The record is a 46-nucleotide sequence from Granulicella mallensis, which matches "Acido-Lenti-1 RNA" in Rfam.
RNA sequence: CCUGGGGCUCACGCCCCAGGCUGGGAUAUGCCGCGCCUUUGGCGCU
Numbered sequence: 001c002c003u004g005g006g007g008c009u010c011a012c013g014c015c016c017c018a019g020g021c022u023g024g025g026a027u028a029u030g031c032c033g034c035g036c037c038u039u040u041g042g043c044g045c046u
Base pairs, nucleotide, nucleotide: 001020002019003018004017005016006015007014008013033045034044035043036042037041
About this RNA:
Pairs were carried over by alignment from the consensus structure, which is taken from published work. By type it is a small RNA. The source organism's lineage runs through Bacteria, Acidobacteriota, Terriglobales, Acidobacteriaceae and Granulicella mallensis.